[Rfam]
Description
This 129-nucleotide RNA sequence from Nannospalax galili belongs to the Rfam family "Small nucleolar RNA SNORA30/SNORA37 family". The base pairs follow the family's consensus structure, which was predicted with RNAfold. The literature on the family includes a 2001 paper in EMBO J by Huttenhofer et al., "RNomics: an experimental approach that identifies 201 candidates for novel, small, non-messenger RNAs in mouse". The source organism's lineage runs through Eukaryota, Bilateria, Amniota, Mammalia and Nannospalax. From the family's description: The members of this family belong to the H/ACA class of snoRNAs that guide the sites of modification of uridines to pseudouridines. This family includes human ACA30 (SNORA30), ACA37 (SNORA37) and the mouse homolog MBI-26. Both ACA37 and ACA30 are predicted to guide the pseudouridylation of residue U4643 of 28S rRNA. It is annotated as an H/ACA-box small nucleolar RNA.

RNA sequence: UUAGCACUUUCACAGGUCUUCCCUUAGUCAGUGGGGCCAGGCUUUGGUAGCUAGUCCUGAAAGAAAACCCUUGAUUACAUCCUUGCCCUGAUACUGUACCAGUGGUAGCUUUCACUCAAGGGAACAGAG
Numbered sequence: 001u002u003a004g005c006a007c008u009u010u011c012a013c014a015g016g017u018c019u020u021c022c023c024u025u026a027g028u029c030a031g032u033g034g035g036g037c038c039a040g041g042c043u044u045u046g047g048u049a050g051c052u053a054g055u056c057c058u059g060a061a062a063g064a065a066a067a068c069c070c071u072u073g074a075u076u077a078c079a080u081c082c083u084u085g086c087c088c089u090g091a092u093a094c095u096g097u098a099c100c101a102g103u104g105g106u107a108g109c110u111u112u113c114a115c116u117c118a119a120g121g122g123a124a125c126a127g128a129g
Stems, first nucleotide, its partner, number of pairs: 003058002006055003013046003018041003022036004069122002071119004076114001079112001083108005088102003